The record is a 71-nucleotide sequence from Aquiflexum balticum, which matches "DUF805 RNA" in Rfam. The family's consensus secondary structure is taken from published work. The family's RNA type in Rfam is cis-regulatory element. The family has 46 seed sequences and 281 matches in Rfam 15.1. NCBI's taxonomy places the organism under Bacteria, Pseudomonadati, Cytophagales, Cyclobacteriaceae, Aquiflexum balticum.
RNA sequence: AAAAAGUGGAGACCAGAAACCACAAUUCAAAAAACGGGGCGAAACCGAAAAGCCUGAUGAGUAGGACAGUU
Numbered sequence: 001a002a003a004a005a006g007u008g009g010a011g012a013c014c015a016g017a018a019a020c021c022a023c024a025a026u027u028c029a030a031a032a033a034a035c036g037g038g039g040c041g042a043a044a045c046c047g048a049a050a051a052g053c054c055u056g057a058u059g060a061g062u063a064g065g066a067c068a069g070u071u
Base pairs, nucleotide, nucleotide: 006023007022008021009020038054039053040052045065046064